The record is a 92-nucleotide RNA sequence from Drosophila virilis, which matches "mir-282 microRNA precursor family" in Rfam. Rfam's curators put it in the seed alignment.
RNA sequence: UUUCCUUAUAAAUCUAGCCUCUACUAGGCUUUGUCUGUGCAUUCGAUAUACGGUCAGACAUAGCCUAUGAGAGGUUAGGUGUACCAAGGGGA
Numbered sequence: 001u002u003u004c005c006u007u008a009u010a011a012a013u014c015u016a017g018c019c020u021c022u023a024c025u026a027g028g029c030u031u032u033g034u035c036u037g038u039g040c041a042u043u044c045g046a047u048a049u050a051c052g053g054u055c056a057g058a059c060a061u062a063g064c065c066u067a068u069g070a071g072a073g074g075u076u077a078g079g080u081g082u083a084c085c086a087a088g089g090g091g092a
Stems, first nucleotide, its partner, number of pairs: 012080009027065004032060005
The base pairs follow the family's consensus structure, which was predicted with RNAalifold. Rfam links the family to the GO terms RISC complex and miRNA-mediated post-transcriptional gene silencing.